The record is a 458-nucleotide RNA from Hirundo rustica, which matches "Vertebrate telomerase RNA" in Rfam. Pairs were carried over by alignment from the consensus structure, which is taken from published work. The source organism's lineage runs through Eukaryota, Opisthokonta, Chordata, Neognathae and Hirundo rustica. From the family's description: Telomerase is a ribonucleoprotein reverse transcriptase that synthesises telomeric DNA. Telomerase RNAs differ greatly in sequence and structure between vertebrates, ciliates and yeasts, but they share a 5' pseudoknot structure close to the template sequence. Vertebrate telomerase RNAs have a 3' H/ACA snoRNA-like domain. A search with the family's covariance model found it, with a score of 135 bits. The family is grouped with related families in Rfam's "Telomerase clan".

[Rfam]
RNA sequence: UGUGCCGGGGUGGGCAGGCCCUGCGGCCGAUUAACCCUAAUGGAGGCUGCCUCCCUCACACCCGCCCGCUGUUUUACUCGCUGACUUUCAGCGGGCAAAGGGAGCGGCCCAGGGAAACGGGGGGAUGGAGGGGGGGAAAAAAAGUUCAGGCCUCAAAAAAAGCCAGCGAGGGGGAUCCACACCCCGGCCCACCCUGGGGUCCCUGUCCCUCCUCCGCGACCAGGGGUGGUCCCGCCCUCGCCCCUCGUGGAGGCCGCGGUCGGCAGGCCCAGCGCCACUACCGCCGCGAAGAGUUCGUCUCUGUCAGCCUCGGCGGCGGCCGGGAUCGGAGGGCCGGCCCGCCCACCCAGGGCAGCCGGGGGACCCCAGCAGAACAAAACGGGGACGGCGCCGCGGGGCGCUGAGCACCCGUGGCUCCCAAAGACGUGGAGUGCGCGGUCGGCGCCGCCCCGACACCC
Numbered sequence: 001u002g003u004g005c006c007g008g009g010g011u012g013g014g015c016a017g018g019c020c021c022u023g024c025g026g027c028c029g030a031u032u033a034a035c036c037c038u039a040a041u042g043g044a045g046g047c048u049g050c051c052u053c054c055c056u057c058a059c060a061c062c063c064g065c066c067c068g069c070u071g072u073u074u075u076a077c078u079c080g081c082u083g084a085c086u087u088u089c090a091g092c093g094g095g096c097a098a099a100g101g102g103a104g105c106g107g108c109c110c111a112g113g114g115a116a117a118c119g120g121g122g123g124g125a126u127g128g129a130g131g132g133g134g135g136g137a138a139a140a141a142a143a144g145u146u147c148a149g150g151c152c153u154c155a156a157a158a159a160a161a162g163c164c165a166g167c168g169a170g171g172g173g174g175a176u177c178c179a180c181a182c183c184c185c186g187g188c189c190c191a192c193c194c195u196g197g198g199g200u201c202c203c204u205g206u207c208c209c210u211c212c213u214c215c216g217c218g219a220c221c222a223g224g225g226g227u228g229g230u231c232c233c234g235c236c237c238u239c240g241c242c243c244c245u246c247g248u249g250g251a252g253g254c255c256g257c258g259g260u261c262g263g264c265a266g267g268c269c270c271a272g273c274g275c276c277a278c279u280a281c282c283g284c285c286g287c288g289a290a291g292a293g294u295u296c297g298u299c300u301c302u303g304u305c306a307g308c309c310u311c312g313g314c315g316g317c318g319g320c321c322g323g324g325a326u327c328g329g330a331g332g333g334c335c336g337g338c339c340c341g342c343c344c345a346c347c348c349a350g351g352g353c354a355g356c357c358g359g360g361g362g363a364c365c366c367c368a369g370c371a372g373a374a375c376a377a378a379a380c381g382g383g384g385a386c387g388g389c390g391c392c393g394c395g396g397g398g399c400g401c402u403g404a405g406c407a408c409c410c411g412u413g414g415c416u417c418c419c420a421a422a423g424a425c426g427u428g429g430a431g432u433g434c435g436c437g438g439u440c441g442g443c444g445c446c447g448c449c450c451c452g453a454c455a456c457c458c
Stems, first nucleotide, its partner, number of pairs: 005187008014178001016176001019174004052103005064096008080167004085162001086160003194369007224339002227336006236324003240320003255288005261283003266276003290302004382450003387446006409438005416431001418429002
Its family is annotated with telomere maintenance via telomerase, telomerase catalytic core complex and telomerase activity in the Gene Ontology.